[Rfam]
RNA sequence: UUUUGUGGCUAGCACUCGACAUGUGACCUGUGUUCGGUAAUCACAUCACAGUCAGAGUUCUAGCUACACGG
Numbered sequence: 001u002u003u004u005g006u007g008g009c010u011a012g013c014a015c016u017c018g019a020c021a022u023g024u025g026a027c028c029u030g031u032g033u034u035c036g037g038u039a040a041u042c043a044c045a046u047c048a049c050a051g052u053c054a055g056a057g058u059u060c061u062a063g064c065u066a067c068a069c070g071g
Base pairs, nucleotide, nucleotide: 004068005067006066009063010062011061012060014058015057016056017055022050023049024048025047026046030044031043032042
RNA: mir-11 microRNA precursor family
Organism: Bombyx mori